[Rfam]
RNA sequence: GCGCAGAUGAUGGGGAGGGGAAUCACUAUUUGGAAAAGAAUGACAUGAACAAAGGAACCACUGAUGUGC
Numbered sequence: 001g002c003g004c005a006g007a008u009g010a011u012g013g014g015g016a017g018g019g020g021a022a023u024c025a026c027u028a029u030u031u032g033g034a035a036a037a038g039a040a041u042g043a044c045a046u047g048a049a050c051a052a053a054g055g056a057a058c059c060a061c062u063g064a065u066g067u068g069c
Stems, first nucleotide, its partner, number of pairs: 001069005

Source information:
Rfam assigns this 69-nucleotide RNA sequence from Hipposideros armiger to the family "Small nucleolar RNA SNORD42". The family's consensus secondary structure was predicted with PFOLD. Lineage of the source: Eukaryota > Tetrapoda > Amniota > Rhinolophoidea > Hipposideros. By type it is a C/D-box small nucleolar RNA. About the family: snoRNA U42 is found in intron 3 of the ribosomal protein L23a (RPL23a) gene in humans and is also present in mice.